[Rfam]
RNA sequence: UAUAUUUGCACCCUCAAUGGAAAAAAUUCAUUGAACUGCAUAAAAAUCAUUUAAAUAAUAUUGGCAUG
Numbered sequence: 001u002a003u004a005u006u007u008g009c010a011c012c013c014u015c016a017a018u019g020g021a022a023a024a025a026a027u028u029c030a031u032u033g034a035a036c037u038g039c040a041u042a043a044a045a046a047u048c049a050u051u052u053a054a055a056u057a058a059u060a061u062u063g064g065c066a067u068g
Stems, first nucleotide, its partner, number of pairs: 014034006

Annotation: This 68-nucleotide RNA sequence from Polaribacter gangjinensis belongs to the Rfam family "S15-Flavobacteria ribosomal protein leader". The match comes from Rfam's covariance-model search (76 bits). Rfam classes the family as a cis-regulatory leader. On this family, see Eckert and Weinberg, BMC Microbiol 2020: "Discovery of 20 novel ribosomal leader candidates in bacteria and archaea". The base pairs follow the family's consensus structure, which is taken from published work. Lineage of the source: Bacteria > Bacteroidota > Flavobacteriia > Flavobacteriales > Polaribacter.